[Rfam]
RNA sequence: ACAAGGGCCCUUUUCAGGGCCACCCAUAUUCUUAAAAGAAUAGUUU
Numbered sequence: 001a002c003a004a005g006g007g008c009c010c011u012u013u014u015c016a017g018g019g020c021c022a023c024c025c026a027u028a029u030u031c032u033u034a035a036a037a038g039a040a041u042a043g044u045u046u
Stems, first nucleotide, its partner, number of pairs: 006021006
RNA: Histone 3' UTR stem-loop
Organism: Dreissena polymorpha